Overview: The family of this 87-nucleotide RNA sequence from Pseudomonas japonica is "gyrA RNA".

RNA sequence: UCGUAAGUCGUUGCGGGGGAGGCCCUCCGCGGCGGCGAGCUUCGUUCGUCCCAUAUGGAUGUGACGAAGUUUCACCAGAAAAAGGAA
Numbered sequence: 001u002c003g004u005a006a007g008u009c010g011u012u013g014c015g016g017g018g019g020a021g022g023c024c025c026u027c028c029g030c031g032g033c034g035g036c037g038a039g040c041u042u043c044g045u046u047c048g049u050c051c052c053a054u055a056u057g058g059a060u061g062u063g064a065c066g067a068a069g070u071u072u073c074a075c076c077a078g079a080a081a082a083a084g085g086a087a
Stems, first nucleotide, its partner, number of pairs: 007036009018026002037072010047061005

Annotation: It is annotated as a cis-regulatory element. Pairs were carried over by alignment from the consensus structure, which is taken from published work.